[Rfam]
RNA sequence: UCCCUCCAUAUGAUGAAAUAUUCCGGAUGUAAAUCAUGUCACUUGCGGAAAAGCGCAAAAACGAUGUCGAAAUUUCCGUUGCCUUCCUUCUGAUCUAGGA
Numbered sequence: 001u002c003c004c005u006c007c008a009u010a011u012g013a014u015g016a017a018a019u020a021u022u023c024c025g026g027a028u029g030u031a032a033a034u035c036a037u038g039u040c041a042c043u044u045g046c047g048g049a050a051a052a053g054c055g056c057a058a059a060a061a062c063g064a065u066g067u068c069g070a071a072a073u074u075u076c077c078g079u080u081g082c083c084u085u086c087c088u089u090c091u092g093a094u095c096u097a098g099g100a
Base pairs, nucleotide, nucleotide: 003099004098005097024078025077026076027075
RNA: Small nucleolar RNA Z13/snr52
Organism: Cylindrodendrum hubeiense